[Rfam]
Background
Shown here is a 284-nucleotide RNA from Leptographium clavigerum, a member of the family "Fungal signal recognition particle RNA". The match comes from Rfam's covariance-model search (137 bits). On this family, see Wild et al., Curr Opin Struct Biol 2002: "Towards the structure of the mammalian signal recognition particle". By type it is a non-coding RNA gene. The family is grouped with related families in Rfam's "SRP clan".
RNA sequence: UGGCUGUAAUGGUCUAAGGGGGACGACUCUUGCAAUUCUCAAUUUCCUUUGCUCCAUGUCCGGCCUUGUGUUGGGUCAAUACGUCGCCCAGUGCGAACGCCGCGGUGGCCGCCCACUCGCACGGGUAACCUGUGAUGCUGGUAAUUUGUGGCCCUAAGCAAUCGGGGAUGAUACUUCAGGGAGGCUUCACUCUGCAGAGACAUCCUCACCGUCGCGUGGCGGACUGGAUUACGAUCGUACUUGAGUUGGAACGGGGUUUGAGAUGAGGAAGUCAACUUCCAUUU
Numbered sequence: 001u002g003g004c005u006g007u008a009a010u011g012g013u014c015u016a017a018g019g020g021g022g023a024c025g026a027c028u029c030u031u032g033c034a035a036u037u038c039u040c041a042a043u044u045u046c047c048u049u050u051g052c053u054c055c056a057u058g059u060c061c062g063g064c065c066u067u068g069u070g071u072u073g074g075g076u077c078a079a080u081a082c083g084u085c086g087c088c089c090a091g092u093g094c095g096a097a098c099g100c101c102g103c104g105g106u107g108g109c110c111g112c113c114c115a116c117u118c119g120c121a122c123g124g125g126u127a128a129c130c131u132g133u134g135a136u137g138c139u140g141g142u143a144a145u146u147u148g149u150g151g152c153c154c155u156a157a158g159c160a161a162u163c164g165g166g167g168a169u170g171a172u173a174c175u176u177c178a179g180g181g182a183g184g185c186u187u188c189a190c191u192c193u194g195c196a197g198a199g200a201c202a203u204c205c206u207c208a209c210c211g212u213c214g215c216g217u218g219g220c221g222g223a224c225u226g227g228a229u230u231a232c233g234a235u236c237g238u239a240c241u242u243g244a245g246u247u248g249g250a251a252c253g254g255g256g257u258u259u260g261a262g263a264u265g266a267g268g269a270a271g272u273c274a275a276c277u278u279c280c281a282u283u284u
Stems, first nucleotide, its partner, number of pairs: 002014003016282001018280005025273003028269003037263006044256004049251002059075006076244003080239004084234003088227005094221002097217004102212004111142003114137002117135005123130002154158001164207006174199003181192003